[Rfam]
RNA: TPP riboswitch aptamer (THI element)
Organism: Bowdeniella nasicola
RNA sequence: UGACGUAGACAGGGGAGCGCCGCCGGGCGCUGAGAGUGCGAACGCAGACCCUACGAACCUGAUCCGGAUCAUGCCGGCGAAGGGAGUCGCAAUCUCCGGGUC
Dot-bracket structure: .......(((((((..(((((....)))))......(((....)))..)))).....(((...((((......))))...)))..)))..............